RNA: drum RNA
Organism: Lachnospiraceae bacterium 3_1_57FAA_CT1
RNA sequence: AAGCGCAGAUAUAAGGGAGUGUGCCGGAAAGCAUUGCCUUAUGGAGCUUGCAAGAGGGGUUGUGCAAUGAAACCUCAAACCGGCGUAGGCUGAAAAGCUGAAAGAAAAUGCUCACA
Numbered sequence: 001a002a003g004c005g006c007a008g009a010u011a012u013a014a015g016g017g018a019g020u021g022u023g024c025c026g027g028a029a030a031g032c033a034u035u036g037c038c039u040u041a042u043g044g045a046g047c048u049u050g051c052a053a054g055a056g057g058g059g060u061u062g063u064g065c066a067a068u069g070a071a072a073c074c075u076c077a078a079a080c081c082g083g084c085g086u087a088g089g090c091u092g093a094a095a096a097g098c099u100g101a102a103a104g105a106a107a108a109u110g111c112u113c114a115c116a
Stems, first nucleotide, its partner, number of pairs: 001049004011042006018035005024083004064111003088099004